[Rfam]
RNA sequence: GACAUGCGAUGAAGCAAGAGGUUGCUUAUUAAAAAAUUAAUAAGGGAAUUUUUGCGGAGAAUGUCCGGCUUAGACUCGGGCGACAA
Numbered sequence: 001g002a003c004a005u006g007c008g009a010u011g012a013a014g015c016a017a018g019a020g021g022u023u024g025c026u027u028a029u030u031a032a033a034a035a036a037u038u039a040a041u042a043a044g045g046g047a048a049u050u051u052u053u054g055c056g057g058a059g060a061a062u063g064u065c066c067g068g069c070u071u072a073g074a075c076u077c078g079g080g081c082g083a084c085a086a
Stems, first nucleotide, its partner, number of pairs: 014055003018052004025044007062085004068081004
Rfam assigns this 86-nucleotide RNA from Proteiniborus sp. DW1 to the family "S10-Clostridia ribosomal protein leader". It is annotated as a cis-regulatory leader. On this family, see Eckert and Weinberg, BMC Microbiol 2020: "Discovery of 20 novel ribosomal leader candidates in bacteria and archaea". NCBI's taxonomy places the organism under Bacteria, Bacillati, Bacillota, Eubacteriales, Proteiniborus.